Nucleotides: 116
Stems, first nucleotide, its partner, number of pairs: 001023005049109002051106007064099002067096003071092006
Number, partner (000 for none) and nucleotide at each position: 001023g002022a003021u004020u005019u006000u007000g008000a009000a010000a011000c012000u013000u014000a015000a016000c017000a018000g019005a020004a021003a022002u023001c024000a025000c026000c027000a028000g029000a030000c031000a032000c033000c034000a035000u036000u037000c038000a039000a040000a041000a042000g043000c044000c045000a046000u047000c048000u049109u050108c051106c052105c053104u054103u055102u056101a057100g058000a059000a060000u061000g062000g063000c064099u065098g066000c067096u068095g069094g070000g071092a072091u073090g074089c075088u076087a077000a078000g079000g080000u081000u082000u083000u084000u085000c086000g087076u088075a089074g090073c091072a092071u093000a094069u095068c096067a097000u098065u099064a100057u101056u102055a103054a104053a105052g106051g107000u108050g109049a110000u111000a112000c113000a114000a115000a116000u
The record is a 116-nucleotide RNA sequence from Cebus imitator, which matches "Small nucleolar RNA SNORA15" in Rfam. It scores 59 bits against the family's covariance model. Rfam's curators write: ACA15 is a member of the H/ACA class of snoRNA that guide the sites of modification of uridines to pseudouridines. The family has 22 seed sequences and 974 matches in Rfam 15.1.